A member of the RNA family "Small nucleolar RNA SNORA32" from Otolemur garnettii, 121 nucleotides long. The family has 9 seed sequences and 615 matches in Rfam 15.1. Rfam classes the family as an H/ACA-box small nucleolar RNA. The family's consensus secondary structure was predicted with RNAfold. NCBI's taxonomy places the organism under Eukaryota, Euteleostomi, Dipnotetrapodomorpha, Eutheria, Otolemur. Gene Ontology terms of the family: RNA processing and nucleolus. ACA32 is a member of the H/ACA class of snoRNA that guide the sites of modification of uridines to pseudouridines.

RNA sequence: UGGCCAUUACCAAGGCUUUUAGAAUGCAGUUUCUCAAUUGCUAAGGACAUGACCAUAAAAAAAAUUUCCACUAGGUUUUCUAUCUGCUACUCUGCUAGCACUCAGCCUAGUGGAGACAUUU
Numbered sequence: 001u002g003g004c005c006a007u008u009a010c011c012a013a014g015g016c017u018u019u020u021a022g023a024a025u026g027c028a029g030u031u032u033c034u035c036a037a038u039u040g041c042u043a044a045g046g047a048c049a050u051g052a053c054c055a056u057a058a059a060a061a062a063a064a065u066u067u068c069c070a071c072u073a074g075g076u077u078u079u080c081u082a083u084c085u086g087c088u089a090c091u092c093u094g095c096u097a098g099c100a101c102u103c104a105g106c107c108u109a110g111u112g113g114a115g116a117c118a119u120u121u
Base pairs, nucleotide, nucleotide: 003053005051006050007049010046011045026041027040028039029038067114068113069112070111074107075106076105077104085100086099087098